Overview: The record is a 66-nucleotide RNA from Vombatus ursinus, which matches "Selenocysteine insertion sequence 1" in Rfam. From the family's description: The incorporation of selenocysteine into a protein sequence is directed by an in-frame UGA codon (usually a stop codon) within the coding region of the mRNA. Selenoprotein mRNAs contain a conserved secondary structure in the 3' UTR that is required for the distinction of UGA stop from UGA selenocysteine. The selenocysteine insertion sequence (SECIS) is around 60 nt in length and adopts a hairpin structure which is sufficiently well-defined and conserved to act as a computational screen for selenoprotein genes. For this family Rfam cites "A survey of metazoan selenocysteine insertion sequences" (Lambert et al., Biochimie, 2002). The family has 61 seed sequences and 3,793 matches in Rfam 15.1.

RNA sequence: CCGGCAUCCAUGACGGUCUGCCUUCAAACCAGGUCACUGGUGGGGUAGACCCGACAACCCGGCGUG
Numbered sequence: 001c002c003g004g005c006a007u008c009c010a011u012g013a014c015g016g017u018c019u020g021c022c023u024u025c026a027a028a029c030c031a032g033g034u035c036a037c038u039g040g041u042g043g044g045g046u047a048g049a050c051c052c053g054a055c056a057a058c059c060c061g062g063c064g065u066g
Stems, first nucleotide, its partner, number of pairs: 001066001004063002015051010030039003